[Rfam]
RNA sequence: AGCAGAAUUAAACACGGAUCUGUGGGACGUACUUCAGUGCUGGUGAGAUCCGCCUGUGUUUUGCAAG
Numbered sequence: 001a002g003c004a005g006a007a008u009u010a011a012a013c014a015c016g017g018a019u020c021u022g023u024g025g026g027a028c029g030u031a032c033u034u035c036a037g038u039g040c041u042g043g044u045g046a047g048a049u050c051c052g053c054c055u056g057u058g059u060u061u062u063g064c065a066a067g
Base pairs, nucleotide, nucleotide: 002064003063004062005061006060007059008058016051017050018049019048022044023043026041028039

Record summary: A member of the RNA family "Trypanosomatid snoRNA TB9Cs3H1" from Leishmania major, 67 nucleotides long. The match comes from Rfam's covariance-model search (67 bits). On this family, see Liang et al., RNA 2005: "A genome-wide analysis of C/D and H/ACA-like small nucleolar RNAs in Trypanosoma brucei reveals a trypanosome-specific pattern of rRNA modification".